[Rfam]
RNA sequence: UGUUGCUGUGAUGAAUCGCAAGGACGGUAUCUGAGUAAGGUGGCUCUUGAAAAGGCCCUCCUUCCUUGAUUAUACAACCUAAACUGAUCUUAAUUUCUGAGCAAACA
Numbered sequence: 001u002g003u004u005g006c007u008g009u010g011a012u013g014a015a016u017c018g019c020a021a022g023g024a025c026g027g028u029a030u031c032u033g034a035g036u037a038a039g040g041u042g043g044c045u046c047u048u049g050a051a052a053a054g055g056c057c058c059u060c061c062u063u064c065c066u067u068g069a070u071u072a073u074a075c076a077a078c079c080u081a082a083a084c085u086g087a088u089c090u091u092a093a094u095u096u097c098u099g100a101g102c103a104a105a106c107a
Stems, first nucleotide, its partner, number of pairs: 001107002003104004035065001037063004
Overview
A member of the RNA family "Small nucleolar RNA Z118/Z121/Z120" from Triticum urartu, 107 nucleotides long. The family's consensus secondary structure was predicted with PFOLD.